A member of the RNA family "Leucine operon leader" from Arsenophonus nasoniae, 138 nucleotides long. A reference for the family is Kolter and Yanofsky (1982), "Attenuation in amino acid biosynthetic operons", Annu Rev Genet. At least 6 amino acid operons are known to be regulated by attenuation. In each a leader sequence of 150-200 bp is found upstream of the first gene in the operon. This leader sequence can assume two different secondary structures known as the terminator and the anti-terminator structure. The match comes from Rfam's covariance-model search (63 bits). Gene Ontology term of the family: leucine biosynthetic process. The family's RNA type in Rfam is cis-regulatory leader. NCBI's taxonomy places the organism under Bacteria, Pseudomonadota, Gammaproteobacteria, Morganellaceae, Arsenophonus.

[Rfam]
RNA sequence: CAAUGUUUUAUGUCACGUUUUAUUCACCUACUAAGCCUACUACUUCUCGCAUUUUCAGUGCGCGGUAUGCUUAUGGGUGAACGAAGUUAUUAAUAUCUACCCACAUAAAAGAACCCGCGCACAAGCGCGGGUUUUUUU
Numbered sequence: 001c002a003a004u005g006u007u008u009u010a011u012g013u014c015a016c017g018u019u020u021u022a023u024u025c026a027c028c029u030a031c032u033a034a035g036c037c038u039a040c041u042a043c044u045u046c047u048c049g050c051a052u053u054u055u056c057a058g059u060g061c062g063c064g065g066u067a068u069g070c071u072u073a074u075g076g077g078u079g080a081a082c083g084a085a086g087u088u089a090u091u092a093a094u095a096u097c098u099a100c101c102c103a104c105a106u107a108a109a110a111g112a113a114c115c116c117g118c119g120c121a122c123a124a125g126c127g128c129g130g131g132u133u134u135u136u137u138u
Stems, first nucleotide, its partner, number of pairs: 003096002007093002010090003020080006026071001041067004048062004110135011